[Rfam]
Nucleotides: 127
Stems, first nucleotide, its partner, number of pairs: 001040001004037002010035002015029001041048002057071004088120009098110003
Number, partner (000 for none) and nucleotide at each position: 001040g002000c003000a004037a005036u006000a007000c008000u009000a010035c011034g012000u013000c014000c015029c016000c017000u018000u019000a020000u021000g022000g023000g024000g025000g026000a027000a028000a029015g030000u031000a032000a033000a034011c035010g036005a037004u038000g039000a040001c041048c042047c043000a044000u045000a046000g047042g048041g049000a050000a051000c052000u053000c054000c055000g056000g057071g058070g059069u060068a061000a062000a063000a064000u065000a066000c067000g068060u069059a070058u071057c072000a073000a074000a075000a076000u077000g078000a079000a080000a081000a082000a083000c084000u085000g086000a087000c088120g089119c090118u091117u092116g093115c094114c095113u096112g097000u098110g099109g100108u101000u102000a103000a104000a105000c106000a107000u108100g109099c110098c111000c112096c113095g114094g115093g116092c117091a118090g119089g120088c121000u122000u123000g124000u125000u126000u127000u